[Rfam]
RNA sequence: AAGUGUUACAGCUCUUUUAGAAUUUGUCUAGCAGGUUUUCCGGUCCUCAUCAGAAGACCCCA
Numbered sequence: 001a002a003g004u005g006u007u008a009c010a011g012c013u014c015u016u017u018u019a020g021a022a023u024u025u026g027u028c029u030a031g032c033a034g035g036u037u038u039u040c041c042g043g044u045c046c047u048c049a050u051c052a053g054a055a056g057a058c059c060c061c062a
Stems, first nucleotide, its partner, number of pairs: 034059007042051003